[Rfam]
Rfam assigns this 141-nucleotide RNA sequence from Papaver somniferum to the family "small nucleolar RNA snoR134".
Taxonomically the source falls in Papaver (Eukaryota, Viridiplantae, Embryophyta, Magnoliopsida).
Rfam 15.1 lists 792 matches to the family in 228 species.
By type it is an H/ACA-box small nucleolar RNA.

RNA sequence: UUGCAUGUUGCACCCCGAGCUUCGCCGAAGUAUACGAUGACGAAAAAAGCCCCAAUGCUCAUGCUAGAUAUAUGCUGUUUAGUGUUGCAGGUUCGCUUAGUUCUUCAACAGCUUAUUUGUGUCAAAAUAACUGCCACAUUC
Numbered sequence: 001u002u003g004c005a006u007g008u009u010g011c012a013c014c015c016c017g018a019g020c021u022u023c024g025c026c027g028a029a030g031u032a033u034a035c036g037a038u039g040a041c042g043a044a045a046a047a048a049g050c051c052c053c054a055a056u057g058c059u060c061a062u063g064c065u066a067g068a069u070a071u072a073u074g075c076u077g078u079u080u081a082g083u084g085u086u087g088c089a090g091g092u093u094c095g096c097u098u099a100g101u102u103c104u105u106c107a108a109c110a111g112c113u114u115a116u117u118u119g120u121g122u123c124a125a126a127a128u129a130a131c132u133g134c135c136a137c138a139u140u141c
Base pairs, nucleotide, nucleotide: 003064004063005062006061007060010058011057017052019050020049021048022046025042074134075133077131078130079129083124084123086121087120088119089118090117091116095112096111097110